[Rfam]
RNA: Hepatitis C virus stem-loop SL1412 RNA
RNA sequence: GCGGGCCUCGCCUACUACUCCAUGGUGGGCAACUGGGCCAAGGUCUUG
Numbered sequence: 001g002c003g004g005g006c007c008u009c010g011c012c013u014a015c016u017a018c019u020c021c022a023u024g025g026u027g028g029g030c031a032a033c034u035g036g037g038c039c040a041a042g043g044u045c046u047u048g
Stems, first nucleotide, its partner, number of pairs: 006043003010038005020029002